[Rfam]
RNA: Eukaryotic large subunit ribosomal RNA, nucleotides 2363 to 2853
RNA sequence: UAGAACAAUGUAGAUAAGGGAAGUCGGCAAAAUAGAUCCGUAACUUCGGGAAAAGGAUUGGCUCUAAGGGUUGGGUGCAUCGGGCCUUGGCUGGAAGCGGCCGGACUGACUAGGACUACUGCGGGCAACUGUGGCGGACUUGGUCGGACUGGCUUGUGGAAGGCUUUGGCUGUCUUCGGGCGUCCGGUGUACGCUUAACAACCAACUUAGAACUGGUACGGACAAGGGGAAUCUGACUGUCUAAUUAAAACAUAGCAUUGCGAUGUCCAGAAAGUGGUUUUGACGCAAUGUGAUUUCUGCCCAGUGCUCUGAAUGUCAAAGUGAAGAAAUUCAACCAAGCGCGGGUAAACGGCGGGAGUAACUAUGACUCUCUUAAGGUAGCCAAAUGCCUCGUCAUCUAAUUAGUGACGCGCAUGAAUGGAUUAACGAGAUUCCCACUGUCCCUAUCUACUAUCUAGCGAAACCACAGCCAAGGGAACGGGCUUGGCAGA
Numbered sequence: 001u002a003g004a005a006c007a008a009u010g011u012a013g014a015u016a017a018g019g020g021a022a023g024u025c026g027g028c029a030a031a032a033u034a035g036a037u038c039c040g041u042a043a044c045u046u047c048g049g050g051a052a053a054a055g056g057a058u059u060g061g062c063u064c065u066a067a068g069g070g071u072u073g074g075g076u077g078c079a080u081c082g083g084g085c086c087u088u089g090g091c092u093g094g095a096a097g098c099g100g101c102c103g104g105a106c107u108g109a110c111u112a113g114g115a116c117u118a119c120u121g122c123g124g125g126c127a128a129c130u131g132u133g134g135c136g137g138a139c140u141u142g143g144u145c146g147g148a149c150u151g152g153c154u155u156g157u158g159g160a161a162g163g164c165u166u167u168g169g170c171u172g173u174c175u176u177c178g179g180g181c182g183u184c185c186g187g188u189g190u191a192c193g194c195u196u197a198a199c200a201a202c203c204a205a206c207u208u209a210g211a212a213c214u215g216g217u218a219c220g221g222a223c224a225a226g227g228g229g230a231a232u233c234u235g236a237c238u239g240u241c242u243a244a245u246u247a248a249a250a251c252a253u254a255g256c257a258u259u260g261c262g263a264u265g266u267c268c269a270g271a272a273a274g275u276g277g278u279u280u281u282g283a284c285g286c287a288a289u290g291u292g293a294u295u296u297c298u299g300c301c302c303a304g305u306g307c308u309c310u311g312a313a314u315g316u317c318a319a320a321g322u323g324a325a326g327a328a329a330u331u332c333a334a335c336c337a338a339g340c341g342c343g344g345g346u347a348a349a350c351g352g353c354g355g356g357a358g359u360a361a362c363u364a365u366g367a368c369u370c371u372c373u374u375a376a377g378g379u380a381g382c383c384a385a386a387u388g389c390c391u392c393g394u395c396a397u398c399u400a401a402u403u404a405g406u407g408a409c410g411c412g413c414a415u416g417a418a419u420g421g422a423u424u425a426a427c428g429a430g431a432u433u434c435c436c437a438c439u440g441u442c443c444c445u446a447u448c449u450a451c452u453a454u455c456u457a458g459c460g461a462a463a464c465c466a467c468a469g470c471c472a473a474g475g476g477a478a479c480g481g482g483c484u485u486g487g488c489a490g491a
Stems, first nucleotide, its partner, number of pairs: 001457004010451007018443003035059005044049001060214002063211006069203005075192009084170003089165003097157004101152004106147009116137002119134006215219001227436007234428002238252003255291008267277003295422003299353003304350002306346004311342001314341003322333004354372006373377001393409005470487005